[Rfam]
This 189-nucleotide sequence from Paenibacillus sp. Root444D2 belongs to the Rfam family "Lysine riboswitch aptamer". It scores 106 bits against the family's covariance model. Taxonomically the source falls in Paenibacillus (Bacteria, Bacilli, Caryophanales, Paenibacillaceae). Rfam describes the family as follows. Riboswitches are metabolite binding domains within certain messenger RNAs that serve as precision sensors for their corresponding targets. Allosteric rearrangement of mRNA structure is mediated by ligand binding, and this results in modulation of gene expression. This family includes riboswitches that sense lysine in a number of genes involved in lysine metabolism, including lysC.
RNA sequence: AGAUGAGGUAGAGGUCGCGAUGUUGAAGAGUACGUCGGAGGAAGUCCAGUAAAGACUGUUGAUUCCGAUGAAAAGGCAACAUUGCCGAAGCCGCACGGUAUACUGACCGCGCUCGGCUGGGGCCGUUUCCGAAAGGAGCGGAACUGUCAUACUGUUGAAUCCAAAACAGUGUGUUGUGCUAUCUUGAAA
Numbered sequence: 001a002g003a004u005g006a007g008g009u010a011g012a013g014g015u016c017g018c019g020a021u022g023u024u025g026a027a028g029a030g031u032a033c034g035u036c037g038g039a040g041g042a043a044g045u046c047c048a049g050u051a052a053a054g055a056c057u058g059u060u061g062a063u064u065c066c067g068a069u070g071a072a073a074a075g076g077c078a079a080c081a082u083u084g085c086c087g088a089a090g091c092c093g094c095a096c097g098g099u100a101u102a103c104u105g106a107c108c109g110c111g112c113u114c115g116g117c118u119g120g121g122g123c124c125g126u127u128u129c130c131g132a133a134a135g136g137a138g139c140g141g142a143a144c145u146g147u148c149a150u151a152c153u154g155u156u157g158a159a160u161c162c163a164a165a166a167c168a169g170u171g172u173g174u175u176g177u178g179c180u181a182u183c184u185u186g187a188a189a
Stems, first nucleotide, its partner, number of pairs: 006184006017085009033070008089118004093112002096109004119145002123141007148173009